RNA sequence: GGAUUGAUAUUGACAAAAACUGUCUGAGGAUGGUGAAUGACUCAUACAAAUAGCACUGUGAGGUCC
Numbered sequence: 001g002g003a004u005u006g007a008u009a010u011u012g013a014c015a016a017a018a019a020c021u022g023u024c025u026g027a028g029g030a031u032g033g034u035g036a037a038u039g040a041c042u043c044a045u046a047c048a049a050a051u052a053g054c055a056c057u058g059u060g061a062g063g064u065c066c
Stems, first nucleotide, its partner, number of pairs: 001066005
The record is a 66-nucleotide RNA from Cricetulus griseus, which matches "Small nucleolar RNA SNORD109A" in Rfam. The literature on the family includes a 2001 paper in Hum Mol Genet by Runte et al., "The IC-SNURF-SNRPN transcript serves as a host for multiple small nucleolar RNA species and as an antisense RNA for UBE3A". Gene Ontology terms of the family: RNA processing and nucleolus. Lineage of the source: Eukaryota > Bilateria > Dipnotetrapodomorpha > Eutheria > Cricetulus. The family's consensus secondary structure was predicted with WAR. It is annotated as a C/D-box small nucleolar RNA. About the family: Humans have two copies of the SNORD109 gene, SNORD109A and SNORD109B.